The record is a 152-nucleotide RNA sequence from Blautia sp. An46, which matches "Clostridiales-1 RNA" in Rfam.

RNA sequence: UGAUACCAAGAGCCGAAAGCUCAGACUUUUAUGCCUGCAUAAAAAAGUCUGAAUUUGAGGCUCGCAAAACAUGAGUAUGUAGUCCGACAGGACGAAAUACGAAUGUUUUUAGAAUUUCGGGAGCACGAAGUGCGGAGAAAUUCGUGGUAUCA
Numbered sequence: 001u002g003a004u005a006c007c008a009a010g011a012g013c014c015g016a017a018a019g020c021u022c023a024g025a026c027u028u029u030u031a032u033g034c035c036u037g038c039a040u041a042a043a044a045a046a047g048u049c050u051g052a053a054u055u056u057g058a059g060g061c062u063c064g065c066a067a068a069a070c071a072u073g074a075g076u077a078u079g080u081a082g083u084c085c086g087a088c089a090g091g092a093c094g095a096a097a098u099a100c101g102a103a104u105g106u107u108u109u110u111a112g113a114a115u116u117u118c119g120g121g122a123g124c125a126c127g128a129a130g131u132g133c134g135g136a137g138a139a140a141u142u143c144g145u146g147g148u149a150u151c152a
Base pairs, nucleotide, nucleotide: 001152002151003150004149005148006147007146011062012061013060014059017056018055019054021052022051023050024049025048026047027046028045029042030041031040032039033038066109067108068107069106070105071104072103075100076099077098078097082093083092084091085090112143113142114141115140116139117138118137123133124132125131126130
It scores 123 bits against the family's covariance model. It is annotated as a small RNA. The source organism's lineage runs through Bacteria, Bacillati, Clostridia, Lachnospiraceae and Blautia.